About this RNA:
Shown here is a 100-nucleotide RNA sequence from Candidatus Kryptonium thompsonii, a member of the family "TPP riboswitch aptamer (THI element)". For this family Rfam cites "Comparative genomics of thiamin biosynthesis in procaryotes. New genes and regulatory mechanisms" (Rodionov et al., J Biol Chem, 2002).
RNA sequence: GUGGACCCGUGGGGGUGCUUCCCUUUUUGGGAGGCUGAGAGUAUACCCCUUGAACCUGAUCUGGGUAAUGCCAGCGUAGGGAAACGGGUCGUAAUUGAGG
Numbered sequence: 001g002u003g004g005a006c007c008c009g010u011g012g013g014g015g016u017g018c019u020u021c022c023c024u025u026u027u028u029g030g031g032a033g034g035c036u037g038a039g040a041g042u043a044u045a046c047c048c049c050u051u052g053a054a055c056c057u058g059a060u061c062u063g064g065g066u067a068a069u070g071c072c073a074g075c076g077u078a079g080g081g082a083a084a085c086g087g088g089u090c091g092u093a094a095u096u097g098a099g100g
Base pairs, nucleotide, nucleotide: 006088007087008086009085010084011049012048013047014046016043017035018034019033020032021031022030023029055080056079057078058077061074062073063072064071
Dot-bracket structure: .....(((((((((.((((((((.....))))))).......)..)))).....((((..((((......))))..))))...)))))............